[Rfam]
RNA: Small nucleolar RNA SNORA14
Organism: Triplophysa tibetana
RNA sequence: AUGCAUUCUUUCACAAACCCCAGAAGCUGCUUGUAGCUGUUGGGACAAGAAUGGAUGCGAGAGAAAAAGCAAGAAUCUUCCUAAGCUAAGGAUCUUUUUGAUGUGACCUUGGGCUAUUUCACAUCUUGCACAUUC
Numbered sequence: 001a002u003g004c005a006u007u008c009u010u011u012c013a014c015a016a017a018c019c020c021c022a023g024a025a026g027c028u029g030c031u032u033g034u035a036g037c038u039g040u041u042g043g044g045a046c047a048a049g050a051a052u053g054g055a056u057g058c059g060a061g062a063g064a065a066a067a068a069g070c071a072a073g074a075a076u077c078u079u080c081c082u083a084a085g086c087u088a089a090g091g092a093u094c095u096u097u098u099u100g101a102u103g104u105g106a107c108c109u110u111g112g113g114c115u116a117u118u119u120c121a122c123a124u125c126u127u128g129c130a131c132a133u134u135c
Base pairs, nucleotide, nucleotide: 003058004057005056006055009050010049011048019044020043021042022041023040025038026037027036063135064134069129070128071127072126073125074124084115085114086113087112089110090109093106098103